[Rfam]
RNA sequence: CUCUUAUCAAGAGAGGCGGAGGGACUGGCCCGACGAUGCCCGGCAACCUGCAAGCAGAAAUGCUUAUAAGGUGCUAAUUCCUGAAAGUGCGUAUGCACUUUAGAGAUGAGAG
Dot-bracket structure: ((((((((....(.(((...(((.[.[[)))......))))((((.((...(...........).....))))))...(]].]((((((......))))))..)))))))))

The record is a 112-nucleotide RNA sequence from Terribacillus saccharophilus, which matches "SAM riboswitch aptamer (S box leader)" in Rfam. The base pairs follow the family's consensus structure, which is taken from published work. A search with the family's covariance model found it, with a score of 85 bits. The organism belongs to Terribacillus, within Bacteria.